This 147-nucleotide RNA sequence from Ipomoea nil belongs to the Rfam family "small nucleolar RNA snoR135". Its family is annotated with RNA processing and nucleolus in the Gene Ontology. For this family Rfam cites "Mining small RNA sequencing data: a new approach to identify small nucleolar RNAs in Arabidopsis" (Chen and Wu, Nucleic Acids Res, 2009). Rfam classes the family as an H/ACA-box small nucleolar RNA. Lineage of the source: Eukaryota > Streptophyta > Streptophytina > Solanales > Ipomoea.
RNA sequence: UAAGCAGAGAUUGUGUGUAUCGACUUUGUGCCUCUUAAUAAAUGUACUUUGAUCGAAAGAGUUCUCUGCAAAACUAUAUAUUGGGGAAGAUGGGCAGUUGUGUUUCAUCCUCUUGUUGAGAUUUCAACAAUCAUCUUCCUUAAAUUC
Number, nucleotide and partner (000 for none) at each position: 001u000002a000003a000004g069005c068006a067007g066008a065009g064010a063011u000012u000013g000014u000015g047016u046017g045018u044019a043020u042021c000022g000023a000024c000025u000026u000027u000028g000029u000030g000031c000032c000033u000034c000035u000036u000037a000038a000039u000040a000041a000042a020043u019044g018045u017046a016047c015048u000049u000050u000051g000052a000053u000054c000055g000056a000057a000058a000059g000060a000061g000062u000063u010064c009065u008066c007067u006068g005069c004070a000071a000072a000073a000074c000075u000076a000077u000078a000079u000080a000081u000082u000083g141084g140085g139086g138087a137088a136089g135090a134091u133092g132093g131094g000095c000096a000097g128098u127099u126100g125101u000102g000103u000104u000105u000106c000107a000108u000109c000110c000111u000112c000113u000114u000115g000116u000117u000118g000119a000120g000121a000122u000123u000124u000125c100126a099127a098128c097129a000130a000131u093132c092133a091134u090135c089136u088137u087138c086139c085140u084141u083142a000143a000144a000145u000146u000147c000